[Rfam]
RNA sequence: AUCCCUUCGCUAAGGAGCUUCUUAUGCGAAAACUGACGGCUACUCUUAUAGUUAGCCUGAUAGGGUUGAUCGCGCUGUCCGUGUCGACCACGGCUGCCGCAUGUGGCGAUUCUUCGAACUCAAAUUAUUCGAGCCCGAAGUGACUGCCCGCCCGAAUGCGCUGAGUGCGCACAAAAAAAGGCCUUCAUCCGACGAUGAAGGCCUUUUACU
Numbered sequence: 001a002u003c004c005c006u007u008c009g010c011u012a013a014g015g016a017g018c019u020u021c022u023u024a025u026g027c028g029a030a031a032a033c034u035g036a037c038g039g040c041u042a043c044u045c046u047u048a049u050a051g052u053u054a055g056c057c058u059g060a061u062a063g064g065g066u067u068g069a070u071c072g073c074g075c076u077g078u079c080c081g082u083g084u085c086g087a088c089c090a091c092g093g094c095u096g097c098c099g100c101a102u103g104u105g106g107c108g109a110u111u112c113u114u115c116g117a118a119c120u121c122a123a124a125u126u127a128u129u130c131g132a133g134c135c136c137g138a139a140g141u142g143a144c145u146g147c148c149c150g151c152c153c154g155a156a157u158g159c160g161c162u163g164a165g166u167g168c169g170c171a172c173a174a175a176a177a178a179a180g181g182c183c184u185u186c187a188u189c190c191g192a193c194g195a196u197g198a199a200g201g202c203c204u205u206u207u208a209c210u
Stems, first nucleotide, its partner, number of pairs: 002036002006030005013022003038057003042052003063153004072100003075096001079093005105148003112140004119133003158170004176207014
A member of the RNA family "Burkholderia sRNA 11" from Caballeronia telluris, 210 nucleotides long.
Rfam's curators write: Identified by RNA-seq, RACE and Northern blot. Strongly expressed in biofilm. Identified in as ncRNA13. It is complimentary by 40 nucleotides with a gene encoding a regulatory protein (BCAL1948). ncS11 is strongly up-regulated in the stationary phase and biofilms, while BCAL1948 is down-regulated under these conditions.
A reference for the family is Yoder-Himes et al. (2009), "Mapping the Burkholderia cenocepacia niche response via high-throughput sequencing", Proc Natl Acad Sci U S A.
Rfam links the family to the GO term bacterial biofilm matrix.